This 108-nucleotide RNA from Hordeum vulgare belongs to the Rfam family "Small nucleolar RNA Z118/Z121/Z120". By type it is a C/D-box small nucleolar RNA. The base pairs follow the family's consensus structure, which was predicted with PFOLD.
RNA sequence: UGUUUGCGGUGAUGAAUCACAAGGACGGUAUCUGAGCAAGGUGGCUCUUGAAGAAGGCCUCCUUCCUUGAUUAUGAAUCCUGAACUGAUCAUAAAUUCUGAGCAAACA
Numbered sequence: 001u002g003u004u005u006g007c008g009g010u011g012a013u014g015a016a017u018c019a020c021a022a023g024g025a026c027g028g029u030a031u032c033u034g035a036g037c038a039a040g041g042u043g044g045c046u047c048u049u050g051a052a053g054a055a056g057g058c059c060u061c062c063u064u065c066c067u068u069g070a071u072u073a074u075g076a077a078u079c080c081u082g083a084a085c086u087g088a089u090c091a092u093a094a095a096u097u098c099u100g101a102g103c104a105a106a107c108a
Base pairs, nucleotide, nucleotide: 001108002107003106004105005104006103007102036066038064039063040062041061